[Rfam]
RNA: ABC transporter regulator
Organism: Citrobacter freundii
RNA sequence: AUUACCCUUCGUGAUGUGGUUAUUGUAAUCAUAAUUUAUUGAUUACAUAAGGGCAAUAUUUUAUUGCCCUUUUAUUUUU
Number, nucleotide and partner (000 for none) at each position: 001a000002u000003u000004a000005c000006c000007c000008u000009u000010c000011g000012u000013g000014a000015u000016g000017u000018g000019g000020u000021u000022a000023u000024u000025g046026u045027a044028a043029u042030c041031a040032u000033a000034a000035u000036u000037u000038a000039u000040u031041g030042a029043u028044u027045a026046c025047a000048u000049a071050a070051g069052g068053g067054c066055a065056a064057u063058a062059u000060u000061u000062u058063a057064u056065u055066g054067c053068c052069c051070u050071u049072u000073u000074a000075u000076u000077u000078u000079u000